[Rfam]
RNA sequence: GUAAAGACGCGCGGGAGUCCGGCCGUUACCGGGCUGAGAGGAAGGCUGCACCGGGCCUUCGACCGCAAGACACCUGAUCCGGAUCAUGCCGGCGAAGGGAGCGCAUGUGGAUGUGAU
Numbered sequence: 001g002u003a004a005a006g007a008c009g010c011g012c013g014g015g016a017g018u019c020c021g022g023c024c025g026u027u028a029c030c031g032g033g034c035u036g037a038g039a040g041g042a043a044g045g046c047u048g049c050a051c052c053g054g055g056c057c058u059u060c061g062a063c064c065g066c067a068a069g070a071c072a073c074c075u076g077a078u079c080c081g082g083a084u085c086a087u088g089c090c091g092g093c094g095a096a097g098g099g100a101g102c103g104c105a106u107g108u109g110g111a112u113g114u115g116a117u
Base pairs, nucleotide, nucleotide: 008103009102010101011066012065013064014063017034018033019032020031021030041060042059043058044057045056046055047054073098074097075096079092080091081090082089